[Rfam]
RNA sequence: GCUGCCCCUAGAGGUAUUGCAGACGUGGCUGCCGGGCCGCAUUUGUGUCAUUAGGUGGCGGAGAGAAGAGAGGCUAUGUCUACGCUCAGUGUUCUGACCCGUAGACGUCUGAAUGAUUAUUAGUCUGACACU
Dot-bracket structure: .((((((((((.(((...((((..(((((......)))))..))))))).))))).)))))......(..((((((......((.((((((((..........)))).)))).)).....))))))..)...